[Rfam]
RNA: Selenocysteine insertion sequence 1
Organism: Dipodomys ordii
RNA sequence: UUUGCAUCAAUGAAGACUACACAGAAAACCUUUCUUAAGGAUUUGUGCAGAUCAGAUAUUUGGCAGA
Dot-bracket structure: (((((.........((((.(((((.....(((....)))...))))).)).)).........)))))
Numbered sequence: 001u002u003u004g005c006a007u008c009a010a011u012g013a014a015g016a017c018u019a020c021a022c023a024g025a026a027a028a029c030c031u032u033u034c035u036u037a038a039g040g041a042u043u044u045g046u047g048c049a050g051a052u053c054a055g056a057u058a059u060u061u062g063g064c065a066g067a
Stems, first nucleotide, its partner, number of pairs: 001067005015053002017050002020047005030039003